[Rfam]
RNA: c-di-GMP-I riboswitch aptamer
RNA sequence: AUAUCGAAAUGGCAAACCUUAUUGAAAAAUGGGGACGCAAAGCCACAGAUCUAAGACAUCCUUGUUAUGAUGGCUGGGCUAUCGAA
Numbered sequence: 001a002u003a004u005c006g007a008a009a010u011g012g013c014a015a016a017c018c019u020u021a022u023u024g025a026a027a028a029a030u031g032g033g034g035a036c037g038c039a040a041a042g043c044c045a046c047a048g049a050u051c052u053a054a055g056a057c058a059u060c061c062u063u064g065u066u067a068u069g070a071u072g073g074c075u076g077g078g079c080u081a082u083c084g085a086a
Stems, first nucleotide, its partner, number of pairs: 012038002017033002020031004041080004046076003049071003056065003